[Rfam]
RNA sequence: UAAAUUUACUAGGGGAGCUAGUGCUCUGGCUGAGAAUGGAAAGAAAGUUCCUAAACCCUUGAACCUGAUAUGGUUAGAACCAUCGUAGGGAAGUGAUAAAUUAAAAAU
Numbered sequence: 001u002a003a004a005u006u007u008a009c010u011a012g013g014g015g016a017g018c019u020a021g022u023g024c025u026c027u028g029g030c031u032g033a034g035a036a037u038g039g040a041a042a043g044a045a046a047g048u049u050c051c052u053a054a055a056c057c058c059u060u061g062a063a064c065c066u067g068a069u070a071u072g073g074u075u076a077g078a079a080c081c082a083u084c085g086u087a088g089g090g091a092a093g094u095g096a097u098a099a100a101u102u103a104a105a106a107a108u
Base pairs, nucleotide, nucleotide: 006096007095008094009093010092011059012058013057014056017030018029019028020027021026038051039050040049041048064089065088066087067086070083071082072081073080

Rfam assigns this 108-nucleotide RNA sequence from Clostridium paraputrificum to the family "TPP riboswitch aptamer (THI element)". Rfam links the family to the GO term thiamine pyrophosphate binding. Lineage of the source: Bacteria > Bacillota > Clostridia > Eubacteriales > Clostridium. The family's consensus secondary structure is taken from published work.